The record is a 90-nucleotide RNA from Ananas comosus, which matches "Small nucleolar RNA U54" in Rfam. Clan: U54 clan. Rfam's curators write: U54 is a C/D box small nucleolar RNA, which acts as a methylation guide for 18S ribosomal RNA in plants. The base pairs follow the family's consensus structure, which was predicted with PFOLD.

RNA sequence: GGCUCAAUGAUUAUAGCCAAUUAUAUUGGCAAUAUACGCUAUUCUGAGAAAGUUGAAAUACUUAUGCGGACAAUUGAGAAUAUGAGAGCU
Numbered sequence: 001g002g003c004u005c006a007a008u009g010a011u012u013a014u015a016g017c018c019a020a021u022u023a024u025a026u027u028g029g030c031a032a033u034a035u036a037c038g039c040u041a042u043u044c045u046g047a048g049a050a051a052g053u054u055g056a057a058a059u060a061c062u063u064a065u066g067c068g069g070a071c072a073a074u075u076g077a078g079a080a081u082a083u084g085a086g087a088g089c090u
Base pairs, nucleotide, nucleotide: 001090002089003088004087005086
Its family is annotated with nucleolus and RNA processing in the Gene Ontology. Rfam classes the family as a C/D-box small nucleolar RNA.